[Rfam]
RNA sequence: CUGAUAUUUUAAUUAACUCACACACAUAUCGGCACAUACGCCGGGGUGCCCUAGGGUCGGCAGUAUGGGAUAUGUGGAGGCCUAAC
Numbered sequence: 001c002u003g004a005u006a007u008u009u010u011a012a013u014u015a016a017c018u019c020a021c022a023c024a025c026a027u028a029u030c031g032g033c034a035c036a037u038a039c040g041c042c043g044g045g046g047u048g049c050c051c052u053a054g055g056g057u058c059g060g061c062a063g064u065a066u067g068g069g070a071u072a073u074g075u076g077g078a079g080g081c082c083u084a085a086c
Base pairs, nucleotide, nucleotide: 023076024075025074026073027072028071029070030069035067036066037065038064039063040061041060042059043058048057049056050055